Source information
Rfam assigns this 78-nucleotide RNA from Artemisia annua to the family "Small nucleolar RNA R12". Lineage of the source: Eukaryota > Spermatophyta > eudicotyledons > Gunneridae > Artemisia. The family's consensus secondary structure was predicted with PFOLD. From the family's description: snoR12 is a C/D box small nucleolar RNA, which acts as a methylation guide for 25S ribosomal RNA in plants. snoR12 has been alternatively named snoZ44 in Arabidopsis and snoZ131 in rice. It scores 52 bits against the family's covariance model. Gene Ontology terms of the family: RNA processing and nucleolus.

RNA sequence: AUGAGGAUGAUGUUAAAUUUAGACGAUUUUGAAUGAUUCUUUUGAAUAUGAUUUCACAACCAGCUACUUCUGACUCAU
Numbered sequence: 001a002u003g004a005g006g007a008u009g010a011u012g013u014u015a016a017a018u019u020u021a022g023a024c025g026a027u028u029u030u031g032a033a034u035g036a037u038u039c040u041u042u043u044g045a046a047u048a049u050g051a052u053u054u055c056a057c058a059a060c061c062a063g064c065u066a067c068u069u070c071u072g073a074c075u076c077a078u
Stems, first nucleotide, its partner, number of pairs: 001078005